The record is an 89-nucleotide RNA sequence from Trichogramma brassicae, which matches "Small nucleolar RNA snR60/Z15/Z230/Z193/J17" in Rfam.
A search with the family's covariance model found it, with a score of 57 bits.
The family's RNA type in Rfam is C/D-box small nucleolar RNA.
Its Rfam clan is "SNORD77 clan".

[Rfam]
RNA sequence: UUUAUUCAAAAUGAUGAUUUCAUAGUUCAACUGAACACUUUGAUGUAUAACUAGCAUAUGUCUUUCGCUCCUAUCUGAUCAUGAAUAAA
Numbered sequence: 001u002u003u004a005u006u007c008a009a010a011a012u013g014a015u016g017a018u019u020u021c022a023u024a025g026u027u028c029a030a031c032u033g034a035a036c037a038c039u040u041u042g043a044u045g046u047a048u049a050a051c052u053a054g055c056a057u058a059u060g061u062c063u064u065u066c067g068c069u070c071c072u073a074u075c076u077g078a079u080c081a082u083g084a085a086u087a088a089a
Base pairs, nucleotide, nucleotide: 004086005085006084007083008082
The literature on the family includes a 2001 paper in Nucleic Acids Res by Qu et al., "Identification of 10 novel snoRNA gene clusters from Arabidopsis thaliana". Gene Ontology terms of the family: RNA processing and nucleolus.